[Rfam]
RNA sequence: CUGGCUCCGGUUCACGUCCCGCAUCCGCGGACGACCCGGCGCU
Numbered sequence: 001c002u003g004g005c006u007c008c009g010g011u012u013c014a015c016g017u018c019c020c021g022c023a024u025c026c027g028c029g030g031a032c033g034a035c036c037c038g039g040c041g042c043u
Stems, first nucleotide, its partner, number of pairs: 003043003007039004015033005021028002
A member of the RNA family "L31-Actinobacteria ribosomal protein leader", 43 nucleotides long. For this family Rfam cites "Discovery of 20 novel ribosomal leader candidates in bacteria and archaea" (Eckert and Weinberg, BMC Microbiol, 2020). The sequence is in the family's curated seed alignment.